[Rfam]
RNA sequence: ACACGAUGAAAGGAGGUGAUCCGGAAGUGUUUUCUUCUCGGAUGCGUGAGGUGGCUGCGGGCUGAGGCCUGCUGUCGCGCUCUCCACUGUCGGCAGGCCUCCUGCCGCAAUCCCCAGCAGUCACCCGACCCGUGGGCCGCCGGAAUCCGACCGGCAUCCUCCGUAACGUACGGCGGAGGAUUCAGGCCCACGGGUCGUCCGCG
Numbered sequence: 001a002c003a004c005g006a007u008g009a010a011a012g013g014a015g016g017u018g019a020u021c022c023g024g025a026a027g028u029g030u031u032u033u034c035u036u037c038u039c040g041g042a043u044g045c046g047u048g049a050g051g052u053g054g055c056u057g058c059g060g061g062c063u064g065a066g067g068c069c070u071g072c073u074g075u076c077g078c079g080c081u082c083u084c085c086a087c088u089g090u091c092g093g094c095a096g097g098c099c100u101c102c103u104g105c106c107g108c109a110a111u112c113c114c115c116a117g118c119a120g121u122c123a124c125c126c127g128a129c130c131c132g133u134g135g136g137c138c139g140c141c142g143g144a145a146u147c148c149g150a151c152c153g154g155c156a157u158c159c160u161c162c163g164u165a166a167c168g169u170a171c172g173g174c175g176g177a178g179g180a181u182u183c184a185g186g187c188c189c190a191c192g193g194g195u196c197g198u199c200c201g202c203g
Base pairs, nucleotide, nucleotide: 016058017057018056020054060106061105062104064102065100067098068097069096070095072093073092074091126197127196128195129194130193131192132191133190134189135188136187137186138185139155140154141153142152143151
The family of this 203-nucleotide sequence from Streptomyces clavuligerus is "Actinobacteria sRNA Ms_IGR-5". It is annotated as a small RNA. NCBI's taxonomy places the organism under Bacteria, Bacillati, Actinomycetota, Actinomycetes, Streptomyces. The match comes from Rfam's covariance-model search (76 bits). For this family Rfam cites "Identification of small RNAs in Mycobacterium smegmatis using heterologous Hfq" (Li et al., RNA, 2013).